[Rfam]
RNA sequence: GUAAGUAAAAGUGUAACAGGAAGAAAGUUGCAGCAUAUAUGCGGUGAAUUAUGCGGUGUCAUAGGAAUUGAGGAUUUAUGUAAGAUGCUGAUAAUGAGUAAGGAACCUUAAAGUUAAUCGUUCCCUGUCUCUCCGCUGAACUAUCCGGACAAAACCGGGCAAUGAACAGUCAAAUCCCACAAAUUCAAUGAUUUGUGGGACUUUU
Numbered sequence: 001g002u003a004a005g006u007a008a009a010a011g012u013g014u015a016a017c018a019g020g021a022a023g024a025a026a027g028u029u030g031c032a033g034c035a036u037a038u039a040u041g042c043g044g045u046g047a048a049u050u051a052u053g054c055g056g057u058g059u060c061a062u063a064g065g066a067a068u069u070g071a072g073g074a075u076u077u078a079u080g081u082a083a084g085a086u087g088c089u090g091a092u093a094a095u096g097a098g099u100a101a102g103g104a105a106c107c108u109u110a111a112a113g114u115u116a117a118u119c120g121u122u123c124c125c126u127g128u129c130u131c132u133c134c135g136c137u138g139a140a141c142u143a144u145c146c147g148g149a150c151a152a153a154a155c156c157g158g159g160c161a162a163u164g165a166a167c168a169g170u171c172a173a174a175u176c177c178c179a180c181a182a183a184u185u186c187a188a189u190g191a192u193u194u195g196u197g198g199g200a201c202u203u204u205u
Base pairs, nucleotide, nucleotide: 012032013031014030015029016028017027041136042135043134044133048095049094050093051092052091054090055089056088057087058086059085060084065077066076067075096131097130098129099127100126102124103123104122105121175200176199177198178197179196180195181194182193183192184191185190
RNA: Bacteroides sRNA BTnc005